[Rfam]
RNA sequence: UAAAAAGCACGUCCGCUGCCAGAGACAGCCGGUGCCGUAAGGCUUAAAGGGGAGACCCGCCUGCCGAGGUGGUCAUUAGAAUGCACUUUCUAAGACCCCGCCUGGCACGCCAGGUGGGGUCUUUGCGUAUGCAG
Numbered sequence: 001u002a003a004a005a006a007g008c009a010c011g012u013c014c015g016c017u018g019c020c021a022g023a024g025a026c027a028g029c030c031g032g033u034g035c036c037g038u039a040a041g042g043c044u045u046a047a048a049g050g051g052g053a054g055a056c057c058c059g060c061c062u063g064c065c066g067a068g069g070u071g072g073u074c075a076u077u078a079g080a081a082u083g084c085a086c087u088u089u090c091u092a093a094g095a096c097c098c099c100g101c102c103u104g105g106c107a108c109g110c111c112a113g114g115u116g117g118g119g120u121c122u123u124u125g126c127g128u129a130u131g132c133a134g
Stems, first nucleotide, its partner, number of pairs: 028064002031061003034043003096119010